[Rfam]
Shown here is a 215-nucleotide RNA from Nocardioides iriomotensis, a member of the family "Actinobacteria sRNA Ms_IGR-5". The literature on the family includes a 2013 paper in RNA by Li et al., "Identification of small RNAs in Mycobacterium smegmatis using heterologous Hfq". The base pairs follow the family's consensus structure. It is annotated as a small RNA. The match comes from Rfam's covariance-model search (112 bits).
RNA sequence: ACACGGGAAAGGAGGUGGUCCAGAAGUGAAUUCUUUCAGGACGCGUGAGGUGGCUGCUUCCUAGCAGCGCACCGACCAGCACGGCGCAGCCGAUGGUUGUCGUGCGCGCUGGUAAUCCAGGGCAGUCACCCGGCCCGUGGGCGCUCGAGCGAGUCCGGCUCGAGAGCGGACCCCCUCCCUGAGGGGAACACCGCACCGCCCACGGGCCGUUCCUC
Dot-bracket structure: .............((((((.................................))))))..(((((.((((..(((........................))).)))))))))..................(((((((((((((.((((((.......)))))).................................)))))))))))))......